RNA sequence: GUCACAAGUGAUGAACAACAAAGGGACUUAAUACUGAAACCUGAUGUUACAUUGCAGUAUGCUGAUGUGG
Number, nucleotide and partner (000 for none) at each position: 001g000002u070003c069004a068005c067006a066007a000008g000009u000010g000011a000012u000013g000014a000015a000016c000017a000018a000019c000020a000021a000022a000023g000024g000025g000026a000027c000028u000029u000030a000031a000032u000033a000034c000035u000036g000037a000038a000039a000040c000041c000042u000043g000044a000045u000046g000047u000048u000049a000050c000051a000052u000053u000054g000055c000056a000057g000058u000059a000060u000061g000062c000063u000064g000065a000066u006067g005068u004069g003070g002
Background:
Small nucleolar RNA SNORD82: a 70-nucleotide RNA from Pipistrellus kuhlii. NCBI's taxonomy places the organism under Eukaryota, Tetrapoda, Amniota, Laurasiatheria, Pipistrellus. For this family Rfam cites "Purified box C/D snoRNPs are able to reproduce site-specific 2'-O-methylation of target RNA in vitro" (Galardi et al., Mol Cell Biol, 2002). About the family: snoRNA U82 or Z25 is found in both humans and mice. The family's RNA type in Rfam is C/D-box small nucleolar RNA. The match comes from Rfam's covariance-model search (90 bits). Pairs were carried over by alignment from the consensus structure, which was predicted with PFOLD.